The record is an 82-nucleotide RNA from Clostridium sp. chh4-2, which matches "ZMP/ZTP riboswitch aptamer (pfl RNA motif)" in Rfam. Pairs were carried over by alignment from the consensus structure, which is taken from published work. For this family Rfam cites "Parallel Discovery Strategies Provide a Basis for Riboswitch Ligand Design" (Tran et al., Cell Chem Biol, 2020). Taxonomically the source falls in Clostridium (Bacteria, Clostridia, Eubacteriales, Clostridiaceae).
RNA sequence: AAAAGGACGUGCGACUGGCGGAUAAGUGGGAAACUACAGGGGAGCACGUAAGAAGAUUGAGCCGACCGCCUGGGCAUGCUGA
Numbered sequence: 001a002a003a004a005g006g007a008c009g010u011g012c013g014a015c016u017g018g019c020g021g022a023u024a025a026g027u028g029g030g031a032a033a034c035u036a037c038a039g040g041g042g043a044g045c046a047c048g049u050a051a052g053a054a055g056a057u058u059g060a061g062c063c064g065a066c067c068g069c070c071u072g073g074g075c076a077u078g079c080u081g082a
Stems, first nucleotide, its partner, number of pairs: 007049006015041002017070005026037004059077001061075003